[Rfam]
RNA: trpB ncRNA motif
RNA sequence: UGCAUAGAUACGACUUUUGGAGUACUUCUAAAAAGUAUCUAUGCGCUAGUCUUCAUCUAUCUAAUAGGGGCGCGUAGUAGGAUAUCUUACCUUACUGGGCGCUUUUUCUUUUUA
Number, nucleotide and partner (000 for none) at each position: 001u045002g044003c043004a042005u041006a040007g039008a038009u037010a036011c035012g000013a000014c000015u033016u032017u031018u030019g029020g028021a000022g000023u000024a000025c000026u000027u000028c020029u019030a018031a017032a016033a015034a000035g011036u010037a009038u008039c007040u006041a005042u004043g003044c002045g001046c000047u000048a000049g000050u000051c000052u000053u000054c000055a000056u000057c000058u000059a000060u000061c000062u000063a000064a000065u000066a000067g000068g000069g103070g102071c101072g100073c099074g000075u097076a096077g095078u094079a093080g092081g091082a000083u000084a000085u000086c000087u000088u000089a000090c000091c081092u080093u079094a078095c077096u076097g075098g000099g073100c072101g071102c070103u069104u000105u000106u000107u000108c000109u000110u000111u000112u000113u000114a000